[Rfam]
RNA: Makes More Granules Regulator RNA (mmgR)
Organism: Sphingobium fluviale
RNA sequence: GGGCUGUGCCUUUCAGGCAUCCUCUCCUAAAAACUUUCAGCCGCCCUCCGGGGCGGCUUUUUUUUGCCUUCA
Numbered sequence: 001g002g003g004c005u006g007u008g009c010c011u012u013u014c015a016g017g018c019a020u021c022c023u024c025u026c027c028u029a030a031a032a033a034c035u036u037u038c039a040g041c042c043g044c045c046c047u048c049c050g051g052g053g054c055g056g057c058u059u060u061u062u063u064u065u066g067c068c069u070u071c072a
Base pairs, nucleotide, nucleotide: 008018009017010016011015040057041056042055043054044053045052046051
Dot-bracket structure: .......((((...)))).....................(((((((....)))))))...............